[Rfam]
RNA sequence: AAGCGGUAAAGUAAGGUGUUGUGCCAGAGAGCAGUGCCUUAUGUGCUUUAUAAGGGUUUAACAUUUACCACAAUCUGGCUAGAGGUUAAUCCUCGAAAGAAAAUGUUAGAA
Numbered sequence: 001a002a003g004c005g006g007u008a009a010a011g012u013a014a015g016g017u018g019u020u021g022u023g024c025c026a027g028a029g030a031g032c033a034g035u036g037c038c039u040u041a042u043g044u045g046c047u048u049u050a051u052a053a054g055g056g057u058u059u060a061a062c063a064u065u066u067a068c069c070a071c072a073a074u075c076u077g078g079c080u081a082g083a084g085g086u087u088a089a090u091c092c093u094c095g096a097a098a099g100a101a102a103a104u105g106u107u108a109g110a111a
Stems, first nucleotide, its partner, number of pairs: 001048004011042012024078004061106003082094004
Shown here is a 111-nucleotide RNA, a member of the family "drum RNA". It is annotated as a small RNA. Rfam's curators put it in the seed alignment. The family's consensus secondary structure is taken from published work.